[Rfam]
RNA sequence: UCAUCGGAUGCCGAAAAGAUGUUAGUAGAGUAGGCA
Numbered sequence: 001u002c003a004u005c006g007g008a009u010g011c012c013g014a015a016a017a018g019a020u021g022u023u024a025g026u027a028g029a030g031u032a033g034g035c036a
Stems, first nucleotide, its partner, number of pairs: 002021004010035003
The family of this 36-nucleotide RNA sequence from Lunatimonas lonarensis is "DUF805b RNA". The family's RNA type in Rfam is cis-regulatory element.